[Rfam]
RNA sequence: GCUUUCUCCGGUGGUCGAAGACCGGGGUAAAGCGGAGCGUCUAACAGUGUCUGCUGUUAGGCGCUCAACUAUUUUCUAU
Numbered sequence: 001g002c003u004u005u006c007u008c009c010g011g012u013g014g015u016c017g018a019a020g021a022c023c024g025g026g027g028u029a030a031a032g033c034g035g036a037g038c039g040u041c042u043a044a045c046a047g048u049g050u051c052u053g054c055u056g057u058u059a060g061g062c063g064c065u066c067a068a069c070u071a072u073u074u075u076c077u078a079u
Stems, first nucleotide, its partner, number of pairs: 001033003006027007036065013
RNA: ctRNA